RNA sequence: CAACAAACUAGCUUGACGAAGCGAAAAGCAGACUACGACUGCCUGUUUGUUGUUAUUGUUAAUCGUAG
Numbered sequence: 001c002a003a004c005a006a007a008c009u010a011g012c013u014u015g016a017c018g019a020a021g022c023g024a025a026a027a028g029c030a031g032a033c034u035a036c037g038a039c040u041g042c043c044u045g046u047u048u049g050u051u052g053u054u055a056u057u058g059u060u061a062a063u064c065g066u067a068g
Stems, first nucleotide, its partner, number of pairs: 001052008011022004028042004033068006